[Rfam]
RNA sequence: AGUCAGCAUUUAGAGAGGGCUGACGCGCCCCGCCAACCUGCAGCUUGAGCAAGGUGGUUACCUCGCAAGAGGGAUGUGGCCUGAUAGGCAACGUCGAGCGUUG
Numbered sequence: 001a002g003u004c005a006g007c008a009u010u011u012a013g014a015g016a017g018g019g020c021u022g023a024c025g026c027g028c029c030c031c032g033c034c035a036a037c038c039u040g041c042a043g044c045u046u047g048a049g050c051a052a053g054g055u056g057g058u059u060a061c062c063u064c065g066c067a068a069g070a071g072g073g074a075u076g077u078g079g080c081c082u083g084a085u086a087g088g089c090a091a092c093g094u095c096g097a098g099c100g101u102u103g
Stems, first nucleotide, its partner, number of pairs: 006077005015031001017030004032058003037054003040050002045100001079089004
Shown here is a 103-nucleotide sequence, a member of the family "SAM-I/IV (S-adenosyl methionine) riboswitch aptamer". The family is grouped with related families in Rfam's "SAM clan".